[Rfam]
RNA: Small Cajal body specific RNA 3
Organism: Peromyscus maniculatus
RNA sequence: AUGGGACGCUUCAGCGUCAGCCUUGUGGACAAAUGAUUUGUCUGCAGAAGGCAUCGAUUCUACACAGUCAUGGAGGUCUCUGUCUGACUUGGACAGCUGGCUAAGACCCAUCAGUCCCCUCCCAUGCAAC
Number, nucleotide and partner (000 for none) at each position: 001a000002u000003g000004g060005g059006a058007c000008g055009c000010u053011u000012c051013a000014g000015c000016g000017u000018c000019a000020g000021c000022c000023u000024u046025g045026u044027g043028g042029a041030c040031a000032a000033a000034u000035g000036a000037u000038u000039u000040g030041u029042c028043u027044g026045c025046a024047g000048a000049a000050g000051g012052c000053a010054u000055c008056g000057a000058u006059u005060c004061u000062a000063c000064a000065c000066a000067g000068u000069c000070a000071u000072g123073g121074a120075g119076g118077u000078c000079u000080c000081u000082g111083u110084c000085u000086g107087a000088c105089u104090u103091g102092g101093a000094c000095a000096g000097c000098u000099g000100g000101c092102u091103a090104a089105g088106a000107c086108c000109c000110a083111u082112c000113a000114g000115u000116c000117c000118c076119c075120u074121c073122c000123c072124a000125u000126g000127c000128a000129a000130c000